Guanidine-I riboswitch aptamer: a 130-nucleotide RNA sequence from Leptolyngbyaceae cyanobacterium M65_K2018_010. About the family: This family represents a conserved RNA structure found upstream of the ykkC and yxkD genes in Bacillus subtilis and related genes in other bacteria.
RNA sequence: UUACUGUGCUUCUAGGGUUCCGGCCAAAAGUACUGCUUUUCGGUGUCUGGUCCGAGAGAAGCAACCCGAUGGCGCGCUGAACUAAGAAAUUCUGCGAUCGGGAGCACGGAGGGAAAAAAGCCCGGGAGAA
Numbered sequence: 001u002u003a004c005u006g007u008g009c010u011u012c013u014a015g016g017g018u019u020c021c022g023g024c025c026a027a028a029a030g031u032a033c034u035g036c037u038u039u040u041c042g043g044u045g046u047c048u049g050g051u052c053c054g055a056g057a058g059a060a061g062c063a064a065c066c067c068g069a070u071g072g073c074g075c076g077c078u079g080a081a082c083u084a085a086g087a088a089a090u091u092c093u094g095c096g097a098u099c100g101g102g103a104g105c106a107c108g109g110a111g112g113g114a115a116a117a118a119a120g121c122c123c124g125g126g127a128g129a130a
Stems, first nucleotide, its partner, number of pairs: 007063006015053002020050002022047001023044003027040004065102006105125001107128001111123003